[Rfam]
RNA sequence: UUGCACUUGUAUCAUAGGCCCCUCUAAUUCUGGUAGUGAGGCCUUGAGCUAGGUGCAUAAAGGAAAUGCUGUUAUAUCAGCAGCGGCCAGACAACCGUAGAGAUGGAUCCACAGUUGAAUGGCUCAAAAUGCCAUUUGACUACUGAUUUCAUCUCACAUUU
Number, nucleotide and partner (000 for none) at each position: 001u000002u057003g056004c055005a054006c053007u000008u000009g049010u048011a000012u047013c046014a045015u000016a044017g043018g042019c041020c040021c000022c038023u000024c036025u035026a034027a000028u000029u000030c000031u000032g000033g000034u026035a025036g024037u000038g022039a000040g020041g019042c018043c017044u016045u014046g013047a012048g010049c009050u000051a000052g000053g006054u005055g004056c003057a002058u000059a000060a000061a000062g000063g000064a000065a000066a000067u000068g000069c000070u000071g000072u000073u000074a000075u000076a000077u000078c000079a000080g000081c000082a000083g000084c000085g000086g000087c000088c000089a000090g000091a000092c000093a000094a000095c000096c000097g000098u000099a000100g155101a154102g153103a152104u151105g150106g149107a148108u000109c000110c000111a000112c000113a000114g000115u000116u000117g000118a137119a136120u134121g133122g132123c000124u000125c000126a000127a000128a000129a000130u000131g000132c122133c121134a120135u000136u119137u118138g000139a000140c000141u000142a000143c000144u000145g000146a000147u000148u107149u106150c105151a104152u103153c102154u101155c100156a000157c000158a000159u000160u000161u000
The record is a 161-nucleotide RNA sequence from Macleaya cordata, which matches "small nucleolar RNA snoR143" in Rfam. Its family is annotated with nucleolus and RNA processing in the Gene Ontology. It scores 106 bits against the family's covariance model. The family's RNA type in Rfam is H/ACA-box small nucleolar RNA.